[Rfam]
Source information
The record is a 75-nucleotide RNA sequence from Streptomyces malaysiensis, which matches "ASpks TB sRNA" in Rfam. Rfam classes the family as an antisense RNA. For this family Rfam cites "Identification of small RNAs in Mycobacterium tuberculosis" (Arnvig and Young, Mol Microbiol, 2009).

RNA sequence: CUUCACCGAGCCCAACCACAGCGGCCGACCCGGAUCCCGGUCCUGGCCGUAGGUGGCCAGCAGGGCCUGCGCCUC
Numbered sequence: 001c002u003u004c005a006c007c008g009a010g011c012c013c014a015a016c017c018a019c020a021g022c023g024g025c026c027g028a029c030c031c032g033g034a035u036c037c038c039g040g041u042c043c044u045g046g047c048c049g050u051a052g053g054u055g056g057c058c059a060g061c062a063g064g065g066c067c068u069g070c071g072c073c074u075c
Stems, first nucleotide, its partner, number of pairs: 016024002031071002038065001043060003047056003

Taxonomically the source falls in Streptomyces (Bacteria, Actinomycetota, Kitasatosporales, Streptomycetaceae).